Shown here is a 351-nucleotide RNA from Phascolarctobacterium sp. CAG:266, a member of the family "Bacterial RNase P class A". Rfam classes the family as a ribozyme. NCBI's taxonomy places the organism under Bacteria, Bacillota, Acidaminococcales, Acidaminococcaceae, Phascolarctobacterium. Its family is annotated with tRNA processing, dimeric ribonuclease P complex and ribonuclease P activity in the Gene Ontology.
RNA sequence: UGAGUGUGAAAAGCAAUCGCUGACGGCUUUGCCGUAAGAGGAAAGUCCGGGCUCCACAGGGCAGAAUGCCGGAUAACGUCCGGCGAGGGUGACCUCAGGGAUAGUGCCACAGAAAUGUGUACCGCCUGCUUCGGCAGGUAAGGGUGGAACGGUGCGGUAAGAGCGCACCAGCGGACGGGUAACCGGCCGGCUAGGUAAACCCCAUUCGGAGCAAGACCAAAUAGGGAAGGGAUGAAGCGGCCCGCUGAUCCUUCCGGGUUGUGUCGCUUGAGCCUGCAAGUAAUUGCCGGCCUAGAUAAAUGAUUGCUGCCGCUUUGCGGAACAGAACCCGGCUUAUUGAGCACUCGUAUU
Numbered sequence: 001u002g003a004g005u006g007u008g009a010a011a012a013g014c015a016a017u018c019g020c021u022g023a024c025g026g027c028u029u030u031g032c033c034g035u036a037a038g039a040g041g042a043a044a045g046u047c048c049g050g051g052c053u054c055c056a057c058a059g060g061g062c063a064g065a066a067u068g069c070c071g072g073a074u075a076a077c078g079u080c081c082g083g084c085g086a087g088g089g090u091g092a093c094c095u096c097a098g099g100g101a102u103a104g105u106g107c108c109a110c111a112g113a114a115a116u117g118u119g120u121a122c123c124g125c126c127u128g129c130u131u132c133g134g135c136a137g138g139u140a141a142g143g144g145u146g147g148a149a150c151g152g153u154g155c156g157g158u159a160a161g162a163g164c165g166c167a168c169c170a171g172c173g174g175a176c177g178g179g180u181a182a183c184c185g186g187c188c189g190g191c192u193a194g195g196u197a198a199a200c201c202c203c204a205u206u207c208g209g210a211g212c213a214a215g216a217c218c219a220a221a222u223a224g225g226g227a228a229g230g231g232a233u234g235a236a237g238c239g240g241c242c243c244g245c246u247g248a249u250c251c252u253u254c255c256g257g258g259u260u261g262u263g264u265c266g267c268u269u270g271a272g273c274c275u276g277c278a279a280g281u282a283a284u285u286g287c288c289g290g291c292c293u294a295g296a297u298a299a300a301u302g303a304u305u306g307c308u309g310c311c312g313c314u315u316u317g318c319g320g321a322a323c324a325g326a327a328c329c330c331g332g333c334u335u336a337u338u339g340a341g342c343a344c345u346c347g348u349a350u351u
Base pairs, nucleotide, nucleotide: 001347002346003345004344005343006342007341010338011337012308013307014306015305016304017303018302020038021037023035024034025033026032027031043335044334045333047332048331049330050329051328052211053210054209055208059243060242061241062240064207065206066205067204068203069083070082071081072080073079084098085096086095087094088093099202100201104200105199106196107195108194122143123142124139125138126137127136128135129134151169152168153167154166155165156164171191172189173188174187176185177184178183215265216264217263218261225255226254227253228252229251230250236246237245238244272291273290274289276287277286278285279284